[Rfam]
RNA sequence: UGCAGCCGUGUCAGAUUCGGUGCCUGCUGCACCCAUGGCCGGCUCUGGCCAGAAGGCUGCCAUAGAAACACCGUGACUCAUGGGCCUUAGGGAUACAUUUGGUAGAGAGAGAG
Numbered sequence: 001u002g003c004a005g006c007c008g009u010g011u012c013a014g015a016u017u018c019g020g021u022g023c024c025u026g027c028u029g030c031a032c033c034c035a036u037g038g039c040c041g042g043c044u045c046u047g048g049c050c051a052g053a054a055g056g057c058u059g060c061c062a063u064a065g066a067a068a069c070a071c072c073g074u075g076a077c078u079c080a081u082g083g084g085c086c087u088u089a090g091g092g093a094u095a096c097a098u099u100u101g102g103u104a105g106a107g108a109g110a111g112a113g
Stems, first nucleotide, its partner, number of pairs: 002060004018047003022043003026039003074104001076103003085092002
RNA: Small nucleolar RNA SNORA5